[Rfam]
RNA sequence: CGCCAUCAUCAAGAGAAGGGCUGGCGCCCUCGCCAACCUGCCGUCCGGGCAAGGUGGUUUCCGCAACAGGGAUGCGGCCGGUCAGACCCUCUACCGAGGUUUUCCGGCAACGAAGCGGUUAAU
Numbered sequence: 001c002g003c004c005a006u007c008a009u010c011a012a013g014a015g016a017a018g019g020g021c022u023g024g025c026g027c028c029c030u031c032g033c034c035a036a037c038c039u040g041c042c043g044u045c046c047g048g049g050c051a052a053g054g055u056g057g058u059u060u061c062c063g064c065a066a067c068a069g070g071g072a073u074g075c076g077g078c079c080g081g082u083c084a085g086a087c088c089c090u091c092u093a094c095c096g097a098g099g100u101u102u103u104c105c106g107g108c109a110a111c112g113a114a115g116c117g118g119u120u121a122a123u
Base pairs, nucleotide, nucleotide: 007074008073009072010071015031017030018029019028020027021026032058033057034056037054038053039052040050041049042048045118046117047116077108078107079106080105
RNA: SAM-I/IV (S-adenosyl methionine) riboswitch aptamer
Organism: Roseibium aggregatum